RNA sequence: UUAUUUUGAAAAAUAACAAAAGAUAAUAUGAAUAAUUUGGAUUUAACCUUGAAAAAAACAUAAGUACCUGUUAUUAUUAAACUAUUAUUUUUGUUCGUGAAUAUGGAAAGUCAGAAACAAAGUUUUCGUCUUGAAAUGUUUGAAAGAGCAAGAAUAGUAAUAUUUACGUGGGUUAACCACAAGGAGGAACAAACAUGUUACAAGGUAAAGUAAAAUGGUUUAAUGCAGAAAAAGGUUUUGGAUUCAUCGAAGUUGAAGGUCAAGACGAUGUAUUCGUACACUUCUCCGCUAUCCAAGGCGACGGCUUCAAAACUUUAGAAGAAGGUCAAGAAGUUUCUUUCGAAAUCGUUGAAGGUGCUCGUGGACCUCAAGCUGCUAACGUUACAAAAUAAUGCUAGCCAAAUAGAAAGGACCCUAGUGAUAGGGUCCUUUUAUU
Numbered sequence: 001u002u003a004u005u006u007u008g009a010a011a012a013a014u015a016a017c018a019a020a021a022g023a024u025a026a027u028a029u030g031a032a033u034a035a036u037u038u039g040g041a042u043u044u045a046a047c048c049u050u051g052a053a054a055a056a057a058a059c060a061u062a063a064g065u066a067c068c069u070g071u072u073a074u075u076a077u078u079a080a081a082c083u084a085u086u087a088u089u090u091u092u093g094u095u096c097g098u099g100a101a102u103a104u105g106g107a108a109a110g111u112c113a114g115a116a117a118c119a120a121a122g123u124u125u126u127c128g129u130c131u132u133g134a135a136a137u138g139u140u141u142g143a144a145a146g147a148g149c150a151a152g153a154a155u156a157g158u159a160a161u162a163u164u165u166a167c168g169u170g171g172g173u174u175a176a177c178c179a180c181a182a183g184g185a186g187g188a189a190c191a192a193a194c195a196u197g198u199u200a201c202a203a204g205g206u207a208a209a210g211u212a213a214a215a216u217g218g219u220u221u222a223a224u225g226c227a228g229a230a231a232a233a234g235g236u237u238u239u240g241g242a243u244u245c246a247u248c249g250a251a252g253u254u255g256a257a258g259g260u261c262a263a264g265a266c267g268a269u270g271u272a273u274u275c276g277u278a279c280a281c282u283u284c285u286c287c288g289c290u291a292u293c294c295a296a297g298g299c300g301a302c303g304g305c306u307u308c309a310a311a312a313c314u315u316u317a318g319a320a321g322a323a324g325g326u327c328a329a330g331a332a333g334u335u336u337c338u339u340u341c342g343a344a345a346u347c348g349u350u351g352a353a354g355g356u357g358c359u360c361g362u363g364g365a366c367c368u369c370a371a372g373c374u375g376c377u378a379a380c381g382u383u384a385c386a387a388a389a390u391a392a393u394g395c396u397a398g399c400c401a402a403a404u405a406g407a408a409a410g411g412a413c414c415c416u417a418g419u420g421a422u423a424g425g426g427u428c429c430u431u432u433u434a435u436u
Stems, first nucleotide, its partner, number of pairs: 001016005025253001027251001029249002039245006047235004059225003063221002066219003072162007085151002088148004093111003125135003164205002258347003267275002278336001280334004285330001288327001289325002292319002295316003300313001353368003358364002372385001377384001394399001406433012

Rfam assigns this 436-nucleotide sequence from Bacillus sp. THAF10 to the family "cspA thermoregulator". It scores 81 bits against the family's covariance model. Lineage of the source: Bacteria > Bacillati > Bacilli > Bacillaceae > Bacillus. By type it is an RNA thermoregulator. The base pairs follow the family's consensus structure, which is taken from published work. Rfam links the family to the GO terms regulation of translation and response to temperature stimulus.